[Rfam]
RNA: malK-I RNA
Nucleotides: 184
Stems, first nucleotide, its partner, number of pairs: 006041002011036004016031003065078004069170006079103008088095002106131005112126003134163008145154003
Number, partner (000 for none) and nucleotide at each position: 001000u002000c003000g004000g005000c006041c007040g008000g009000a010000g011036c012035c013034c014033g015000c016031u017030c018029a019000c020000u021000c022000c023000a024000c025000u026000u027000u028000u029018u030017g031016a032000a033014c034013g035012g036011g037000g038000g039000a040007c041006g042000a043000c044000u045000g046000a047000c048000a049000a050000u051000a052000a053000a054000g055000g056000a057000g058000g059000a060000a061000a062000g063000a064000u065078c066077c067076c068075c069170u070169g071168a072167c073166u074165u075068g076067g077066g078065g079103u080102g081101c082100g083099g084098c085097a086096g087000u088095g089094u090000g091000g092000a093000g094089a095088c096086c097085u098084g099083u100082c101081g102080c103079a104000a105000u106131g107130c108129g109128c110127g111000a112126c113125c114124g115000a116000c117000a118000u119000a120000u121000g122000c123000g124114c125113g126112g127110c128109g129108c130107g131106c132000g133000a134163g135162g136161c137160g138159g139158u140157u141156c142000g143000u144000u145154g146153a147152a148000g149000g150000a151000g152147u153146u154145c155000g156141g157140g158139a159138c160137c161136g162135u163134c164000g165074a166073a167072g168071u169070c170069a171000a172000a173000u174000g175000c176000a177000g178000u179000a180000u181000g182000g183000c184000a